About this RNA: SAM/SAH riboswitch aptamer: a 50-nucleotide RNA sequence from Thioclava indica. Its family is annotated with regulation of gene expression and S-adenosylmethionine metabolic process in the Gene Ontology.

RNA sequence: GACCCGCUCCAACGGCUUCCUGACGGUGCGGGGGUAUUCACAACGGAGCA
Number, nucleotide and partner (000 for none) at each position: 001g000002a000003c000004c032005c031006g029007c028008u000009c026010c025011a000012a000013c022014g021015g049016c048017u047018u000019c046020c045021u014022g013023a000024c000025g010026g009027u000028g007029c006030g000031g005032g004033g000034g000035u000036a000037u000038u000039c000040a000041c000042a000043a000044c000045g020046g019047a017048g016049c015050a000
Taxonomically the source falls in Thioclava (Bacteria, Pseudomonadota, Alphaproteobacteria, Paracoccaceae).